[Rfam]
Rfam assigns this 75-nucleotide RNA sequence to the family "L13-Bacteroidia ribosomal protein leader".
Rfam classes the family as a cis-regulatory leader.
It is one of the family's seed sequences.

RNA sequence: GGGGAUACACUUAGAACCCCAUACGAUACGUGUUAAUAGUGUUGUCUUUGGCCGGGCAGCAUGGUUAGGUCAAGC
Numbered sequence: 001g002g003g004g005a006u007a008c009a010c011u012u013a014g015a016a017c018c019c020c021a022u023a024c025g026a027u028a029c030g031u032g033u034u035a036a037u038a039g040u041g042u043u044g045u046c047u048u049u050g051g052c053c054g055g056g057c058a059g060c061a062u063g064g065u066u067a068g069g070u071c072a073a074g075c
Stems, first nucleotide, its partner, number of pairs: 001020004033068005039062009
The family's consensus secondary structure is taken from published work. A reference for the family is Eckert and Weinberg (2020), "Discovery of 20 novel ribosomal leader candidates in bacteria and archaea", BMC Microbiol.